The family of this 102-nucleotide RNA sequence from Leptobrachium leishanense is "Vault RNA".
Pairs were carried over by alignment from the consensus structure, which is taken from published work.
A reference for the family is Stadler et al. (2009), "Evolution of Vault RNAs", Mol Biol Evol.
The match comes from Rfam's covariance-model search (66 bits).
NCBI's taxonomy places the organism under Eukaryota, Deuterostomia, Vertebrata, Pelobatoidea, Leptobrachium.
From the family's description: This family of RNAs are found as part of the enigmatic vault ribonucleoprotein complex.

RNA sequence: GGGUUGGCUGUGGCUCAGCGGUUACUUCUGGAAUUCCACUUCACUUUCAAUGAGGCUUCCCCUAACCGGGAUCGAUCCCCGCGGGCGCUAUCUGACCUUUUA
Numbered sequence: 001g002g003g004u005u006g007g008c009u010g011u012g013g014c015u016c017a018g019c020g021g022u023u024a025c026u027u028c029u030g031g032a033a034u035u036c037c038a039c040u041u042c043a044c045u046u047u048c049a050a051u052g053a054g055g056c057u058u059c060c061c062c063u064a065a066c067c068g069g070g071a072u073c074g075a076u077c078c079c080c081g082c083g084g085g086c087g088c089u090a091u092c093u094g095a096c097c098u099u100u101u102a
Base pairs, nucleotide, nucleotide: 002097003096004095005094006093007092013086014085015084016083018082019081020080021079027075028074030072